Shown here is an 86-nucleotide RNA sequence from Eudromia elegans, a member of the family "Small nucleolar RNA SNORD127". NCBI's taxonomy places the organism under Eukaryota, Bilateria, Euteleostomi, Archelosauria, Eudromia. Rfam links the family to the GO terms RNA processing and nucleolus. For this family Rfam cites "snoSeeker: an advanced computational package for screening of guide and orphan snoRNA genes in the human genome" (Yang et al., Nucleic Acids Res, 2006).
[Rfam]
RNA sequence: UGGCAACUAUGAUGACAGAUGUCCUACCUGCAUGUAAUGUUUCAUUACUACAUGGAGACACUAGUCCCUCUAAACUGAUGUUGCCG
Numbered sequence: 001u002g003g004c005a006a007c008u009a010u011g012a013u014g015a016c017a018g019a020u021g022u023c024c025u026a027c028c029u030g031c032a033u034g035u036a037a038u039g040u041u042u043c044a045u046u047a048c049u050a051c052a053u054g055g056a057g058a059c060a061c062u063a064g065u066c067c068c069u070c071u072a073a074a075c076u077g078a079u080g081u082u083g084c085c086g
Base pairs, nucleotide, nucleotide: 001086002085003084004083005082006081007080
Dot-bracket structure: (((((((........................................................................)))))))
By type it is a C/D-box small nucleolar RNA.